[Rfam]
RNA sequence: UGUUGGAUGAUGAAGCGAAUCAUUCGGAUUCCCAUUGAUUUCCGUAAGAUGAUAUUGUUAACCAGCUACUUCUGACAACA
Numbered sequence: 001u002g003u004u005g006g007a008u009g010a011u012g013a014a015g016c017g018a019a020u021c022a023u024u025c026g027g028a029u030u031c032c033c034a035u036u037g038a039u040u041u042c043c044g045u046a047a048g049a050u051g052a053u054a055u056u057g058u059u060a061a062c063c064a065g066c067u068a069c070u071u072c073u074g075a076c077a078a079c080a
Stems, first nucleotide, its partner, number of pairs: 001080005
Overview
Small nucleolar RNA R12: an 80-nucleotide RNA sequence from Elaeis guineensis. It scores 76 bits against the family's covariance model. About the family: snoR12 is a C/D box small nucleolar RNA, which acts as a methylation guide for 25S ribosomal RNA in plants. snoR12 has been alternatively named snoZ44 in Arabidopsis and snoZ131 in rice. The organism belongs to Elaeis, within Eukaryota.